[Rfam]
RNA sequence: CAAUGAAGGAAGCAUGGUAAUGUGCACAGAUAUGGACUUGGGUCGUCAUGUCUGCUUGCUCUGAGUGCCUCUUUGGCCUUUUAUGAUUUGCAGGCCUGGAUUAAACCUACAAUC
Numbered sequence: 001c002a003a004u005g006a007a008g009g010a011a012g013c014a015u016g017g018u019a020a021u022g023u024g025c026a027c028a029g030a031u032a033u034g035g036a037c038u039u040g041g042g043u044c045g046u047c048a049u050g051u052c053u054g055c056u057u058g059c060u061c062u063g064a065g066u067g068c069c070u071c072u073u074u075g076g077c078c079u080u081u082u083a084u085g086a087u088u089u090g091c092a093g094g095c096c097u098g099g100a101u102u103a104a105a106c107c108u109a110c111a112a113u114c
Stems, first nucleotide, its partner, number of pairs: 012025004040097005050087003054081001
Shown here is a 114-nucleotide RNA from Coptis chinensis, a member of the family "Small nucleolar RNA snoR100". The family has 9 seed sequences and 1,851 matches in Rfam 15.1. On this family, see Marker et al., Curr Biol 2002: "Experimental RNomics: identification of 140 candidates for small non-messenger RNAs in the plant Arabidopsis thaliana". The family's RNA type in Rfam is H/ACA-box small nucleolar RNA. The base pairs follow the family's consensus structure, which was predicted with WAR. Taxonomically the source falls in Coptis (Eukaryota, Streptophyta, Magnoliopsida, Mesangiospermae).